[Rfam]
RNA sequence: AACUUGGAUGAUGAACAAAUUUACCAAAGCAUAGUUCAACUGAAGAUCUUCGGAUUGCUGAACGACAACCUUUAUCCAUCUUUCUUUUCUGACU
Numbered sequence: 001a002a003c004u005u006g007g008a009u010g011a012u013g014a015a016c017a018a019a020u021u022u023a024c025c026a027a028a029g030c031a032u033a034g035u036u037c038a039a040c041u042g043a044a045g046a047u048c049u050u051c052g053g054a055u056u057g058c059u060g061a062a063c064g065a066c067a068a069c070c071u072u073u074a075u076c077c078a079u080c081u082u083u084c085u086u087u088u089c090u091g092a093c094u
Base pairs, nucleotide, nucleotide: 006021007020009017010016034063035062036061037060038059045056046055047054048053

Record summary
Shown here is a 94-nucleotide RNA from Penicillium cosmopolitanum, a member of the family "A. fumigatus snoRNA Afu_263". It scores 75 bits against the family's covariance model. The source organism's lineage runs through Eukaryota, Pezizomycotina, Eurotiales, Aspergillaceae and Penicillium. For this family Rfam cites "Small ncRNA transcriptome analysis from Aspergillus fumigatus suggests a novel mechanism for regulation of protein synthesis" (Jochl et al., Nucleic Acids Res, 2008). The family's RNA type in Rfam is C/D-box small nucleolar RNA. The pairing is the family consensus, mapped onto this sequence.